Rfam assigns this 104-nucleotide RNA sequence from Lysinibacillus sphaericus to the family "SAM riboswitch aptamer (S box leader)". Gene Ontology term of the family: regulation of gene expression. The organism belongs to Lysinibacillus sphaericus, within Bacteria.
[Rfam]
RNA sequence: CUCUUAUGAAGAGCGGCGGAGGGAAGUGCCCUAUGAAGCCCGGCAACCAUCACAUAGUGAAAAGGUGCCAAAUCACCCAAAGAUUUUUCUUUGAAAGAUGAGAG
Numbered sequence: 001c002u003c004u005u006a007u008g009a010a011g012a013g014c015g016g017c018g019g020a021g022g023g024a025a026g027u028g029c030c031c032u033a034u035g036a037a038g039c040c041c042g043g044c045a046a047c048c049a050u051c052a053c054a055u056a057g058u059g060a061a062a063a064g065g066u067g068c069c070a071a072a073u074c075a076c077c078c079a080a081a082g083a084u085u086u087u088u089c090u091u092u093g094a095a096a097g098a099u100g101a102g103a104g
Stems, first nucleotide, its partner, number of pairs: 001104007013041001015040003021031003026076003042069004047065002050060003073096001078093006